[Rfam]
RNA sequence: GUCGUAUAAAGAUGUAUUAGAUGCAAGACAAUCUAGCAUUUCCCUUUACGGCAUUGUAAUAAAAUUAGAAAUUCAAGCAAAAAGAAUUGUUGUAUGGUUAAGAAUCGAAACAAUUUGAGUUUGAAUGGAAAAGGUUAACCGUAUGACCUUGUGUUGGAAAACACUAAAAAUAAUCUCGAAAUGACAUUUCUUAAUUUUCGUUAUUUCGAGUUACGGUUAU
Numbered sequence: 001g002u003c004g005u006a007u008a009a010a011g012a013u014g015u016a017u018u019a020g021a022u023g024c025a026a027g028a029c030a031a032u033c034u035a036g037c038a039u040u041u042c043c044c045u046u047u048a049c050g051g052c053a054u055u056g057u058a059a060u061a062a063a064a065u066u067a068g069a070a071a072u073u074c075a076a077g078c079a080a081a082a083a084g085a086a087u088u089g090u091u092g093u094a095u096g097g098u099u100a101a102g103a104a105u106c107g108a109a110a111c112a113a114u115u116u117g118a119g120u121u122u123g124a125a126u127g128g129a130a131a132a133g134g135u136u137a138a139c140c141g142u143a144u145g146a147c148c149u150u151g152u153g154u155u156g157g158a159a160a161a162c163a164c165u166a167a168a169a170a171u172a173a174u175c176u177c178g179a180a181a182u183g184a185c186a187u188u189u190c191u192u193a194a195u196u197u198u199c200g201u202u203a204u205u206u207c208g209a210g211u212u213a214c215g216g217u218u219a220u
Base pairs, nucleotide, nucleotide: 001052002051003050004049005048006047008045010041011040012039013038014037015036018035019034020033021032022031023029071126072125073124074123075122076121077120078119085115086114087113088112089111090110091109096106097105099103132149133148134147135146136145138217139216140215141214142213143212144170151164152163153162154161155160175210176209177208178207179206180205181204182203183202184201185200
Dot-bracket structure: ((((((.(.((((((..((((((.....).)))))))))))...).))))))..................((((((((......(((((((....((.(...).))..)))))))...)))))))).....[[[[[.(((((((]]]]].(((((....))))).....)....(((((((((((..............))))))))))).))))))...